[Rfam]
RNA sequence: AUCUUGUGAAAGACAUGGGUAGUGAGAUGUGAGAUUCAUACAGACAUCUCACUACCUUGUCCUUCAUGAGAAG
Dot-bracket structure: .......(((.((((.(((.(((((((((...............))))))))).))))))).)))........
RNA: mir-71 microRNA precursor family